[Rfam]
RNA sequence: CUUCUCAUUUAUGUGCUGCUGUAGUCUCUCAGUGAUAGGAGCAGUUAUACUCAUGGGAUAGAACAACGUUGGCCAUUGUAAGUUGAGGCGAAGUAACUACGUCAUCUUUUCCGCGUGGCUUGGGCACUG
Numbered sequence: 001c002u003u004c005u006c007a008u009u010u011a012u013g014u015g016c017u018g019c020u021g022u023a024g025u026c027u028c029u030c031a032g033u034g035a036u037a038g039g040a041g042c043a044g045u046u047a048u049a050c051u052c053a054u055g056g057g058a059u060a061g062a063a064c065a066a067c068g069u070u071g072g073c074c075a076u077u078g079u080a081a082g083u084u085g086a087g088g089c090g091a092a093g094u095a096a097c098u099a100c101g102u103c104a105u106c107u108u109u110u111c112c113g114c115g116u117g118g119c120u121u122g123g124g125c126a127c128u129g
Stems, first nucleotide, its partner, number of pairs: 003058006015045006022037002025035002069123003072119004077115003085108004090103002093100002
Shown here is a 129-nucleotide RNA from Octodon degus, a member of the family "Small nucleolar RNA SNORA20". Its family is annotated with nucleolus and RNA processing in the Gene Ontology. By type it is an H/ACA-box small nucleolar RNA. Its Rfam clan is "SNORA20 clan". About the family: ACA20 is a member of the H/ACA class of snoRNA that guide the sites of modification of uridines to pseudouridines.